[Rfam]
The record is a 117-nucleotide sequence from Morella rubra, which matches "mir-172 microRNA precursor family" in Rfam. The match comes from Rfam's covariance-model search (74 bits). The family has 11 seed sequences and 2,076 matches in Rfam 15.1. On this family, see Jones-Rhoades and Bartel, Mol Cell 2004: "Computational Identification of Plant MicroRNAs and Their Targets, Including a Stress-Induced miRNA". The base pairs follow the family's consensus structure, which was predicted with PFOLD. From the family's description: mir-172 has been experimentally verified in Arabidopsis thaliana. This family is thought to target mRNAs coding for APETALA2-like transcription factors. The mature sequence is excised from the 3' arm of the hairpin.
RNA sequence: UUUAUUGCCGAUGCAGCAUCAUCAAGAUUCUCACUUUAAAAAACUUUGACAGAGAGAUUUUGCAUCACUCGCCGUGCAUUUGCAUGUGAAUCUUGAUGAUGCUACACCCGCAAACAA
Numbered sequence: 001u002u003u004a005u006u007g008c009c010g011a012u013g014c015a016g017c018a019u020c021a022u023c024a025a026g027a028u029u030c031u032c033a034c035u036u037u038a039a040a041a042a043a044c045u046u047u048g049a050c051a052g053a054g055a056g057a058u059u060u061u062g063c064a065u066c067a068c069u070c071g072c073c074g075u076g077c078a079u080u081u082g083c084a085u086g087u088g089a090a091u092c093u094u095g096a097u098g099a100u101g102c103u104a105c106a107c108c109c110g111c112a113a114a115c116a117a
Stems, first nucleotide, its partner, number of pairs: 010108001012106002015103016032086002